This 89-nucleotide RNA from Glycine max belongs to the Rfam family "MIR167 microRNA precursor family".
Gene Ontology terms of the family: miRNA-mediated post-transcriptional gene silencing and RISC complex.
The base pairs follow the family's consensus structure, which was predicted with RNAalifold.

RNA sequence: AACUACUAGGUGAAACUGCCACAUGAUCUGAUCUUUCCACGGCAAGUGAGGGAAGUUAAGAUCAUGCUGGCAGCUUCAACUGGUAGUGG
Numbered sequence: 001a002a003c004u005a006c007u008a009g010g011u012g013a014a015a016c017u018g019c020c021a022c023a024u025g026a027u028c029u030g031a032u033c034u035u036u037c038c039a040c041g042g043c044a045a046g047u048g049a050g051g052g053a054a055g056u057u058a059a060g061a062u063c064a065u066g067c068u069g070g071c072a073g074c075u076u077c078a079a080c081u082g083g084u085a086g087u088g089g
Stems, first nucleotide, its partner, number of pairs: 002087008011078004016073006022066008033055006040048002
Lineage of the source: Eukaryota > Streptophytina > Tracheophyta > Magnoliopsida > Glycine subgen. Soja. For this family Rfam cites "High throughput approaches reveal splicing of primary microRNA transcripts and tissue specific expression of mature microRNAs in Vitis vinifera" (Mica et al., BMC Genomics, 2009).